[Rfam]
Lysine riboswitch aptamer: a 174-nucleotide sequence from Veronia pacifica. The organism belongs to Veronia, within Bacteria. Rfam links the family to the GO term lysine biosynthetic process.
RNA sequence: GAUGUCAGAAGAGGCGCGAUUAUCAGGCAGUCAGUACUCGGAGCCCCACUCCAAUGUGUGCUGAUCAGGGGAUAAAUCGCCGAGGUGGACCGGAAAAAGGGGAUCCGGUUUGUCGGUCUUGAAGGUUGAGUCCUUCGGAUUGUCACCCAAGGUGGGUGGAGUGCUUCUGGUUAU
Number, nucleotide and partner (000 for none) at each position: 001g000002a000003u000004g000005u000006c169007a168008g167009a166010a165011g164012a000013g000014g000015c000016g080017c079018g078019a077020u076021u075022a073023u072024c071025a000026g000027g000028c000029a000030g065031u064032c063033a062034g061035u060036a059037c058038u000039c000040g000041g000042a000043g000044c000045c000046c000047c000048a000049c000050u000051c000052c000053a000054a000055u000056g000057u000058g037059u036060g035061c034062u033063g032064a031065u030066c000067a000068g000069g000070g000071g024072a023073u022074a000075a021076a020077u019078c018079g017080c016081c000082g000083a000084g114085g113086u112087g111088g110089a109090c108091c107092g106093g105094a104095a000096a000097a000098a000099g000100g000101g000102g000103a000104u094105c093106c092107g091108g090109u089110u088111u087112g086113u085114c084115g141116g140117u139118c138119u000120u137121g136122a135123a134124g133125g132126u000127u000128g000129a000130g000131u000132c125133c124134u123135u122136c121137g120138g118139a117140u116141u115142g000143u159144c158145a157146c156147c155148c154149a153150a000151g000152g000153u149154g148155g147156g146157u145158g144159g143160a000161g000162u000163g000164c011165u010166u009167c008168u007169g006170g000171u000172u000173a000174u000